[Rfam]
Rfam assigns this 79-nucleotide RNA sequence from Acidaminococcus fermentans to the family "ZMP/ZTP riboswitch aptamer (pfl RNA motif)".
RNA sequence: GACAGAUCAUGUGACUGACGGAAGUGGGUUUACCCACAGGGAGCAUGGUCGUAGAACGCCGACCGUCUGGGCACCUGCU
Numbered sequence: 001g002a003c004a005g006a007u008c009a010u011g012u013g014a015c016u017g018a019c020g021g022a023a024g025u026g027g028g029u030u031u032a033c034c035c036a037c038a039g040g041g042a043g044c045a046u047g048g049u050c051g052u053a054g055a056a057c058g059c060c061g062a063c064c065g066u067c068u069g070g071g072c073a074c075c076u077g078c079u
Stems, first nucleotide, its partner, number of pairs: 005050008015040002017067005024037004058072003